[Rfam]
RNA sequence: GAACGUAUAGCUGGGGCCUGCCGAUGACCACGAAGGUCGGCGACCCACGGAGAGGCUGGCGCAUUGCACUUUAGCGUCCGGCUGACCUGUGUGGACAUCUCGUCUUGGGAUCGUACAACAGCUCAAUUUUUGGAUUAGGGAAAGCGUACUCGCUUUCCCUU
Numbered sequence: 001g002a003a004c005g006u007a008u009a010g011c012u013g014g015g016g017c018c019u020g021c022c023g024a025u026g027a028c029c030a031c032g033a034a035g036g037u038c039g040g041c042g043a044c045c046c047a048c049g050g051a052g053a054g055g056c057u058g059g060c061g062c063a064u065u066g067c068a069c070u071u072u073a074g075c076g077u078c079c080g081g082c083u084g085a086c087c088u089g090u091g092u093g094g095a096c097a098u099c100u101c102g103u104c105u106u107g108g109g110a111u112c113g114u115a116c117a118a119c120a121g122c123u124c125a126a127u128u129u130u131u132g133g134a135u136u137a138g139g140g141a142a143a144g145c146g147u148a149c150u151c152g153c154u155u156u157c158c159c160u161u
Base pairs, nucleotide, nucleotide: 010122011121012120013119014046015045016044018042021040022039023038024037025036047090048089049088050087052086054083055082056081058079059078061075062074092117093116099108100107137160138159139158140157141156143154144153145152146151
The record is a 161-nucleotide RNA sequence from Steinernema carpocapsae, which matches "U1 spliceosomal RNA" in Rfam.
Rfam classes the family as a spliceosomal small nuclear RNA.
The base pairs follow the family's consensus structure, which is taken from published work.